[Rfam]
RNA sequence: GCGGAUGGCUGGAUGAUCGCGGGCCGGUAACGGGUCGAGGAAAGUCCGGACUCCAGUAAAGCACGGUGCCGGGUAACGCCCGGCGGGGGCAACCCCAGGGAAAGCGCCACAGAAAACAGACGGCCUUGCAUGCAGGGUCAAGGUGAAACGGUGGGGUAAGAGCCCACCGCGCGACGGGCAACCGAAGCGGCACGGCAAGCCCCACCGGGAGCAAUGCCAAAUAGGGAUCGCGUGCCUUCGGGCGGGGUGGCUUGCACCCCAGCAGAUCCGGGUUGGCAGCUAGAGGCACGUUGGCAACAGCGCGUCCAGAUGAAUGAUCAUCCAUCCGUGGCAACACGGGGGACAGAAUCCGGCUUACAGGCCAUCCGCGCAC
Numbered sequence: 001g002c003g004g005a006u007g008g009c010u011g012g013a014u015g016a017u018c019g020c021g022g023g024c025c026g027g028u029a030a031c032g033g034g035u036c037g038a039g040g041a042a043a044g045u046c047c048g049g050a051c052u053c054c055a056g057u058a059a060a061g062c063a064c065g066g067u068g069c070c071g072g073g074u075a076a077c078g079c080c081c082g083g084c085g086g087g088g089g090c091a092a093c094c095c096c097a098g099g100g101a102a103a104g105c106g107c108c109a110c111a112g113a114a115a116a117c118a119g120a121c122g123g124c125c126u127u128g129c130a131u132g133c134a135g136g137g138u139c140a141a142g143g144u145g146a147a148a149c150g151g152u153g154g155g156g157u158a159a160g161a162g163c164c165c166a167c168c169g170c171g172c173g174a175c176g177g178g179c180a181a182c183c184g185a186a187g188c189g190g191c192a193c194g195g196c197a198a199g200c201c202c203c204a205c206c207g208g209g210a211g212c213a214a215u216g217c218c219a220a221a222u223a224g225g226g227a228u229c230g231c232g233u234g235c236c237u238u239c240g241g242g243c244g245g246g247g248u249g250g251c252u253u254g255c256a257c258c259c260c261a262g263c264a265g266a267u268c269c270g271g272g273u274u275g276g277c278a279g280c281u282a283g284a285g286g287c288a289c290g291u292u293g294g295c296a297a298c299a300g301c302g303c304g305u306c307c308a309g310a311u312g313a314a315u316g317a318u319c320a321u322c323c324a325u326c327c328g329u330g331g332c333a334a335c336a337c338g339g340g341g342g343a344c345a346g347a348a349u350c351c352g353g354c355u356u357a358c359a360g361g362c363c364a365u366c367c368g369c370g371c372a373c
Base pairs, nucleotide, nucleotide: 001369002368003367004366005365006364007363008362009361010360011358012322013321014320015319016318017317018316020037021036022035024033025032026031042356043355044354046353047352048351049350050349051211052210053209054208059253060252061251062250064207065206066205067204068203069083070082071081072080073079084098085096086095087094088093099202100201104200105199106196107195108194121142123138124137125136126135127134128133150168151167152166153165154164155163169191170189171188172187175184176183177182215278216277217276218275225269226268227267228266229265245259246258247257248256286305287304289302290301291300292299293298
This 373-nucleotide RNA from Cognatiyoonia koreensis belongs to the Rfam family "Bacterial RNase P class A". By type it is a ribozyme.